[Rfam]
RNA sequence: GAACCAGUCUCGCUGAAUCUCCGAAUGGAGAGCGGGGGAACCAAAUACAUCAUGCCGGAUAUCAACACAGAUGACAGAAAGUGUGCCGGAAUGAACUGUAAUUGAUUUCUUUACUCGGGUCUAUGGGGUGAAUUCGAGGUCAUUGCGCCAUGAGCGAAUGAACUGAGAAGGGGCGGCACUCUCGCGUCCUAACCCGACAGCUAACCCCGUAAGCGUACGUUGAGAGGGCAA
Numbered sequence: 001g002a003a004c005c006a007g008u009c010u011c012g013c014u015g016a017a018u019c020u021c022c023g024a025a026u027g028g029a030g031a032g033c034g035g036g037g038g039a040a041c042c043a044a045a046u047a048c049a050u051c052a053u054g055c056c057g058g059a060u061a062u063c064a065a066c067a068c069a070g071a072u073g074a075c076a077g078a079a080a081g082u083g084u085g086c087c088g089g090a091a092u093g094a095a096c097u098g099u100a101a102u103u104g105a106u107u108u109c110u111u112u113a114c115u116c117g118g119g120u121c122u123a124u125g126g127g128g129u130g131a132a133u134u135c136g137a138g139g140u141c142a143u144u145g146c147g148c149c150a151u152g153a154g155c156g157a158a159u160g161a162a163c164u165g166a167g168a169a170g171g172g173g174c175g176g177c178a179c180u181c182u183c184g185c186g187u188c189c190u191a192a193c194c195c196g197a198c199a200g201c202u203a204a205c206c207c208c209g210u211a212a213g214c215g216u217a218c219g220u221u222g223a224g225a226g227g228g229c230a231a
Stems, first nucleotide, its partner, number of pairs: 011215004018031003032210006042125002126195003134168002171189004
Shown here is a 231-nucleotide RNA from Paenibacillus apis, a member of the family "c-di-AMP riboswitch aptamer (ydaO/yuaA leader)".
The match comes from Rfam's covariance-model search (71 bits).
NCBI's taxonomy places the organism under Bacteria, Bacillati, Bacillota, Bacilli, Paenibacillus.
The pairing is the family consensus, mapped onto this sequence.